A member of the RNA family "Enterococcus sRNA B11" from Enterococcus hirae, 174 nucleotides long.
A search with the family's covariance model found it, with a score of 83 bits.
The family has 4 seed sequences and 31 matches in Rfam 15.1.
The family's RNA type in Rfam is small RNA.
For this family Rfam cites "Genome-wide identification of small RNAs in the opportunistic pathogen Enterococcus faecalis V583" (Shioya et al., PLoS One, 2011).
NCBI's taxonomy places the organism under Bacteria, Bacillati, Bacilli, Enterococcaceae, Enterococcus hirae.

RNA sequence: GGCAACUUGCCCCCAAGGGGGUGAUUCCAUUGGAAAAAUUAAUAUCGCUAGUUAUUGCACCUAUCUUUGUAGGUUUAGUUAUUCAACUAAUUUCUCACUGGUUAGAUGAGAAAGACAAUGACUAAUAGCAAGUUGCUUCUAACCCACACAUUCGAAGUCGCAACGAUUGUAAAA
Numbered sequence: 001g002g003c004a005a006c007u008u009g010c011c012c013c014c015a016a017g018g019g020g021g022u023g024a025u026u027c028c029a030u031u032g033g034a035a036a037a038a039u040u041a042a043u044a045u046c047g048c049u050a051g052u053u054a055u056u057g058c059a060c061c062u063a064u065c066u067u068u069g070u071a072g073g074u075u076u077a078g079u080u081a082u083u084c085a086a087c088u089a090a091u092u093u094c095u096c097a098c099u100g101g102u103u104a105g106a107u108g109a110g111a112a113a114g115a116c117a118a119u120g121a122c123u124a125a126u127a128g129c130a131a132g133u134u135g136c137u138u139c140u141a142a143c144c145c146a147c148a149c150a151u152u153c154g155a156a157g158u159c160g161c162a163a164c165g166a167u168u169g170u171a172a173a174a
Stems, first nucleotide, its partner, number of pairs: 001137008010020004022034001049124009060073005075090006091105002095101002149169002152166002